[Rfam]
RNA sequence: ACGGGCAUAGUUCAAUGGUAGAAUAGCGGUCUCCAAAACCGUUGAUACGGGUUCGAAUCCUGUUGCCCGUG
Numbered sequence: 001a002c003g004g005g006c007a008u009a010g011u012u013c014a015a016u017g018g019u020a021g022a023a024u025a026g027c028g029g030u031c032u033c034c035a036a037a038a039c040c041g042u043u044g045a046u047a048c049g050g051g052u053u054c055g056a057a058u059c060c061u062g063u064u065g066c067c068c069g070u071g
Stems, first nucleotide, its partner, number of pairs: 001070007010024004026042005047063005
RNA: tRNA
Organism: Chitinophaga sp. MD30